[Rfam]
RNA sequence: UUAGGACCCGGUGAGAGCCCGGGUGGCUCUUCCGGCCGCUGAUCCGCCGGACAACC
Numbered sequence: 001u002u003a004g005g006a007c008c009c010g011g012u013g014a015g016a017g018c019c020c021g022g023g024u025g026g027c028u029c030u031u032c033c034g035g036c037c038g039c040u041g042a043u044c045c046g047c048c049g050g051a052c053a054a055c056c
Stems, first nucleotide, its partner, number of pairs: 006024006012017001031051006

The family of this 56-nucleotide sequence from Primorskyibacter sedentarius is "sul1 RNA". It is annotated as a riboswitch. It scores 75 bits against the family's covariance model. Taxonomically the source falls in Primorskyibacter (Bacteria, Pseudomonadota, Rhodobacterales, Roseobacteraceae).